RNA sequence: GAAACCGUGUCGCUCAACCGUCCACGGCAGGAGCGGGGGACCCACAGGUACGACGCCUGUCCGGACUCCGGAACAGGCUUGGGGUAAAGCCGUGCGCACCACGCGGCCGGGCAUCUCCUGCCCGCACCCGACAGCUCACCUCGUAGGCGCGGGAGAGGAAUU
Dot-bracket structure: ....((.......................)).((((((....((...................................))(((.....((((.........))))..((((.......))))...))).........))))))..................

Shown here is a 162-nucleotide sequence from Actinobacteria bacterium OK074, a member of the family "c-di-AMP riboswitch aptamer (ydaO/yuaA leader)".
Taxonomically the source falls in Actinomycetes (Bacteria, Bacillati, Actinomycetota).
It scores 63 bits against the family's covariance model.